[Rfam]
RNA sequence: CCUUGUACAGGUGAUGAGGUCCGCCUAGACGUUUGGUCUGAACCGCUUAUGCUGAUGACUUCUACAUAAUU
Number, nucleotide and partner (000 for none) at each position: 001c000002c000003u000004u000005g000006u000007a000008c000009a000010g025011g024012u023013g022014a000015u000016g062017a061018g060019g059020u058021c057022c013023g012024c011025c010026u000027a000028g000029a000030c000031g000032u000033u000034u000035g000036g000037u000038c000039u000040g000041a000042a000043c000044c000045g052046c051047u000048u000049a000050u000051g046052c045053u000054g000055a000056u000057g021058a020059c019060u018061u017062c016063u000064a000065c000066a000067u000068a000069a000070u000071u000
RNA: Fluoride riboswitch aptamer (crcB RNA motif)